[Rfam]
Shown here is a 143-nucleotide RNA sequence from Dipodomys ordii, a member of the family "Small Cajal body specific RNA 11". The family has 24 seed sequences and 853 matches in Rfam 15.1. The family's consensus secondary structure was predicted with RNAalifold. Gene Ontology terms of the family: RNA processing, nucleolus and Cajal body. On this family, see Darzacq et al., EMBO J 2002: "Cajal body-specific small nuclear RNAs: a novel class of 2'-O-methylation and pseudouridylation guide RNAs". The source organism's lineage runs through Eukaryota, Craniata, Dipnotetrapodomorpha, Amniota and Dipodomys. About the family: scaRNAs are a specific class of small nuclear RNAs which localise to the Cajal bodies and guide the modification of RNA polymerase II transcribed spliceosomal RNAs U1, U2, U4, U5 and U12.
RNA sequence: CCGUCCUGGCCACGCCCGCUGCUGCCCCGUGCUCAGCUCCUGCGGCGCACGCGCAGUCUGGCAGGACGCACAGUGUACCCCCCCUCAGUUUAGGAGGGCAGCCCGAAGAAUGGGUCUGGCUCUUAAAGGCACGAGGGGACAGU
Numbered sequence: 001c002c003g004u005c006c007u008g009g010c011c012a013c014g015c016c017c018g019c020u021g022c023u024g025c026c027c028c029g030u031g032c033u034c035a036g037c038u039c040c041u042g043c044g045g046c047g048c049a050c051g052c053g054c055a056g057u058c059u060g061g062c063a064g065g066a067c068g069c070a071c072a073g074u075g076u077a078c079c080c081c082c083c084c085u086c087a088g089u090u091u092a093g094g095a096g097g098g099c100a101g102c103c104c105g106a107a108g109a110a111u112g113g114g115u116c117u118g119g120c121u122c123u124u125a126a127a128g129g130c131a132c133g134a135g136g137g138g139a140c141a142g143u
Stems, first nucleotide, its partner, number of pairs: 002068007010061002021057003025047001027045004081138006088130004094124006101116001103114002106111001